[Rfam]
Annotation
This 185-nucleotide sequence belongs to the Rfam family "DUF2800 RNA".

RNA sequence: GCCCUGAGCAUGACACAAAACUGCCCACCACCGAAUGCCGCAUCAGCUGAUCACCGAUGGCUCAACGGUAUCCGGUGGUACAAGUAAAUAGCACGGCUGCCCAUUGAGCGGGUCAGCCGCAAUCCGAAGCGGAAAGAUUCGUUAGGACUGCGGUCGGUUUCCUAUACCCAUUUUGCAGCAGCACC
Number, nucleotide and partner (000 for none) at each position: 001g000002c000003c000004c000005u000006g000007a000008g000009c000010a000011u000012g000013a000014c000015a000016c000017a000018a000019a000020a000021c000022u000023g000024c000025c000026c000027a000028c078029c077030a076031c075032c074033g000034a000035a071036u070037g069038c068039c067040g066041c059042a058043u057044c056045a000046g000047c000048u000049g000050a000051u000052c000053a000054c000055c000056g044057a043058u042059g041060g109061c108062u107063c106064a105065a104066c040067g039068g038069u037070a036071u035072c000073c000074g032075g031076u030077g029078g028079u000080a000081c000082a000083a000084g000085u000086a000087a000088a000089u000090a000091g000092c000093a000094c181095g000096g179097c178098u177099g176100c175101c000102c000103a000104u065105u064106g063107a062108g061109c060110g000111g000112g000113u000114c000115a000116g154117c153118c152119g151120c150121a000122a000123u000124c000125c000126g000127a000128a000129g142130c141131g140132g139133a138134a000135a000136g000137a000138u133139u132140c131141g130142u129143u000144a000145g000146g000147a000148c000149u000150g120151c119152g118153g117154u116155c000156g000157g000158u000159u000160u000161c000162c000163u000164a000165u000166a000167c000168c000169c000170a000171u000172u000173u000174u000175g100176c099177a098178g097179c096180a000181g094182c000183a000184c000185c000

Pairs were carried over by alignment from the consensus structure, which is taken from published work.
By type it is a cis-regulatory element.